[Rfam]
RNA sequence: AUGGAGUAACCGAAAAGCCAAAAAAGAGUAGGAA
Numbered sequence: 001a002u003g004g005a006g007u008a009a010c011c012g013a014a015a016a017g018c019c020a021a022a023a024a025a026g027a028g029u030a031g032g033a034a
Base pairs, nucleotide, nucleotide: 002020003019004018010032011031

DUF805b RNA: a 34-nucleotide RNA. Rfam's curators put it in the seed alignment.